Rfam assigns this 74-nucleotide RNA from Marinithermus hydrothermalis to the family "tRNA". The family's RNA type in Rfam is transfer RNA. It scores 72 bits against the family's covariance model. Pairs were carried over by alignment from the consensus structure, which is taken from published work. The source organism's lineage runs through Bacteria, Deinococci, Thermales, Thermaceae and Marinithermus hydrothermalis.
[Rfam]
RNA sequence: GGGCCCUUAGCUCAAUCGGUGAGAGCAGCCGGCUCAUAACCGGUUGGUUGCAGGUUCGAGCCCUGCAGGGCCCA
Numbered sequence: 001g002g003g004c005c006c007u008u009a010g011c012u013c014a015a016u017c018g019g020u021g022a023g024a025g026c027a028g029c030c031g032g033c034u035c036a037u038a039a040c041c042g043g044u045u046g047g048u049u050g051c052a053g054g055u056u057c058g059a060g061c062c063c064u065g066c067a068g069g070g071c072c073c074a
Stems, first nucleotide, its partner, number of pairs: 001073007010026004028044005050066005